Rfam assigns this 67-nucleotide RNA from Oceanobacillus picturae to the family "Bacillaceae-1 RNA". By type it is a small RNA. The family's consensus secondary structure is taken from published work. Lineage of the source: Bacteria > Bacillati > Bacilli > Caryophanales > Oceanobacillus.

RNA sequence: UAUUAAGGAACGCCGACUAAGUUCGCCUCGUCCUGAGGCAACGUCGGCAUGGCCCGGAUCCUCUGGG
Numbered sequence: 001u002a003u004u005a006a007g008g009a010a011c012g013c014c015g016a017c018u019a020a021g022u023u024c025g026c027c028u029c030g031u032c033c034u035g036a037g038g039c040a041a042c043g044u045c046g047g048c049a050u051g052g053c054c055c056g057g058a059u060c061c062u063c064u065g066g067g
Stems, first nucleotide, its partner, number of pairs: 012048006025039005053067005